[Rfam]
RNA sequence: GCCAAUGCGGAAUCUGAAGGAAGCUCUAGCCAAAUCGGUCACCUAAACGAAAGUGAACCUUCGUAAGGCGGCAACAAAGGGGUAAGGUGCCCGCGACCACCGAAGCCCAAUAUUCUCAUCGUAAUUUGUUGUUGUAUUGAAGGUAGGUAGAUCGAGAGAUAGUUGACU
Number, nucleotide and partner (000 for none) at each position: 001g006002c000003c000004a000005a000006u001007g000008c000009g000010g000011a000012a000013u000014c000015u000016g000017a000018a000019g000020g000021a000022a000023g168024c000025u166026c165027u000028a000029g000030c000031c000032a000033a000034a000035u155036c154037g153038g152039u151040c150041a148042c147043c146044u145045a144046a000047a000048c000049g000050a000051a000052a000053g000054u000055g000056a000057a000058c143059c142060u141061u140062c139063g000064u000065a000066a000067g000068g135069c134070g133071g000072c131073a130074a129075c128076a127077a126078a125079g000080g108081g107082g106083u105084a000085a000086g101087g100088u099089g098090c000091c000092c000093g000094c000095g000096a000097c000098c089099a088100c087101c086102g000103a000104a000105g083106c082107c081108c080109a000110a000111u000112a000113u000114u000115c000116u000117c000118a000119u000120c000121g000122u000123a000124a000125u078126u077127u076128g075129u074130u073131g072132u000133u070134g069135u068136a000137u000138u000139g062140a061141a060142g059143g058144u045145a044146g043147g042148u041149a000150g040151a039152u038153c037154g036155a035156g000157a000158g000159a000160u000161a000162g000163u000164u000165g026166a025167c000168u023